[Rfam]
RNA sequence: CCACCAUUACAUAUCGUUACUCGUAUAUCCUCGGUAAUAUGGUCUGAGCGUUUCUACCUGGUUCCCAUUAUAAGAACCAGACUACGAGUUGAAGUAUUCGGUUU
Numbered sequence: 001c002c003a004c005c006a007u008u009a010c011a012u013a014u015c016g017u018u019a020c021u022c023g024u025a026u027a028u029c030c031u032c033g034g035u036a037a038u039a040u041g042g043u044c045u046g047a048g049c050g051u052u053u054c055u056a057c058c059u060g061g062u063u064c065c066c067a068u069u070a071u072a073a074g075a076a077c078c079a080g081a082c083u084a085c086g087a088g089u090u091g092a093a094g095u096a097u098u099c100g101g102u103u104u
Stems, first nucleotide, its partner, number of pairs: 019089007030048005058080007
Background:
The record is a 104-nucleotide RNA sequence from Rossellomorea vietnamensis, which matches "Purine riboswitch aptamer" in Rfam. Pairs were carried over by alignment from the consensus structure, which is taken from published work. Riboswitches are metabolite binding domains within certain messenger RNAs that serve as precision sensors for their corresponding targets. It scores 72 bits against the family's covariance model. Taxonomically the source falls in Rossellomorea (Bacteria, Bacillota, Caryophanales, Bacillaceae).